[Rfam]
RNA sequence: GGAUUACUCCUUUACGCUUUCGCGUUUGGUUGAUAAAGAUUCGCACCUCUAUCAAACCGGGUAAUCCCACCUCUUGGCAAGACCUGCUGUCAGAUCAAAUCUGAACUACUACACAUUAUGAAUAGCAGCAAAGACAGAUGCCUAUAUCGCAGAAAGGCCGAUGAGAAAUCCAAGUACCUGUCCUCGGGCGAUUUGUUG
Numbered sequence: 001g002g003a004u005u006a007c008u009c010c011u012u013u014a015c016g017c018u019u020u021c022g023c024g025u026u027u028g029g030u031u032g033a034u035a036a037a038g039a040u041u042c043g044c045a046c047c048u049c050u051a052u053c054a055a056a057c058c059g060g061g062u063a064a065u066c067c068c069a070c071c072u073c074u075u076g077g078c079a080a081g082a083c084c085u086g087c088u089g090u091c092a093g094a095u096c097a098a099a100u101c102u103g104a105a106c107u108a109c110u111a112c113a114c115a116u117u118a119u120g121a122a123u124a125g126c127a128g129c130a131a132a133g134a135c136a137g138a139u140g141c142c143u144a145u146a147u148c149g150c151a152g153a154a155a156g157g158c159c160g161a162u163g164a165g166a167a168a169u170c171c172a173a174g175u176a177c178c179u180g181u182c183c184u185c186g187g188g189c190g191a192u193u194u195g196u197u198g
Stems, first nucleotide, its partner, number of pairs: 001067007009060002014025004028058004032053004037048002069196002076142002081135001084133002089106002091103005109128002157189003
RNA: Proteobacterial sRNA psRNA2